[Rfam]
RNA sequence: GGGGAUGAUCGGUUUCGACAUUGCCUGUAUGCGAACGAGAAGCGGGCCGAGGAUGUGGGGUUAUCUCGUAAACGCUCCCCGCAAAACAAUAAGUGCCAAUAAAAAGAGCACUGACUUCGCUCUCGCUGCGUAAGCAGUAGAGCCCUAAAAGUCCGUCAGACCGGUGACCGUUCUCUAACCGGAUCCUGGCGUCAGCUAGAGAACUCGCUGCACGGUUGCGUCACAGGGCCGCGCGGGACUUCCACUGCGACUGGGCUCGUCCACCUAGAUGCCGAUAGCAAAGGUGGGAGCCGAGCAGAACGAAUCAAUCGGCUACACCCGUAGAAGGCGUUCAAUCUCAGCAGUGGACGGGGGUUCAAUUCCCCCCAUCUCCACCA
Numbered sequence: 001g002g003g004g005a006u007g008a009u010c011g012g013u014u015u016c017g018a019c020a021u022u023g024c025c026u027g028u029a030u031g032c033g034a035a036c037g038a039g040a041a042g043c044g045g046g047c048c049g050a051g052g053a054u055g056u057g058g059g060g061u062u063a064u065c066u067c068g069u070a071a072a073c074g075c076u077c078c079c080c081g082c083a084a085a086a087c088a089a090u091a092a093g094u095g096c097c098a099a100u101a102a103a104a105a106g107a108g109c110a111c112u113g114a115c116u117u118c119g120c121u122c123u124c125g126c127u128g129c130g131u132a133a134g135c136a137g138u139a140g141a142g143c144c145c146u147a148a149a150a151g152u153c154c155g156u157c158a159g160a161c162c163g164g165u166g167a168c169c170g171u172u173c174u175c176u177a178a179c180c181g182g183a184u185c186c187u188g189g190c191g192u193c194a195g196c197u198a199g200a201g202a203a204c205u206c207g208c209u210g211c212a213c214g215g216u217u218g219c220g221u222c223a224c225a226g227g228g229c230c231g232c233g234c235g236g237g238a239c240u241u242c243c244a245c246u247g248c249g250a251c252u253g254g255g256c257u258c259g260u261c262c263a264c265c266u267a268g269a270u271g272c273c274g275a276u277a278g279c280a281a282a283g284g285u286g287g288g289a290g291c292c293g294a295g296c297a298g299a300a301c302g303a304a305u306c307a308a309u310c311g312g313c314u315a316c317a318c319c320c321g322u323a324g325a326a327g328g329c330g331u332u333c334a335a336u337c338u339c340a341g342c343a344g345u346g347g348a349c350g351g352g353g354g355u356u357c358a359a360u361u362c363c364c365c366c367c368a369u370c371u372c373c374a375c376c377a
Base pairs, nucleotide, nucleotide: 001373002372003371004370005369006368007367019346020345021344022343023342024341027338033333034332035331036330037329043321044320045319046318048068049067050066051065052064054083055082056081057080058079059078060077121141122140123139125138126137127136128135129134154191155190156189157188158187159186162182163180164179165178167176170204171203172202173201174200175199208236209235210234211233213231214230215229216228220251221250222249224247254292255291256290257289258288261287262286263285266281268279271313272312273311274310276308278306350366351365352364353363354362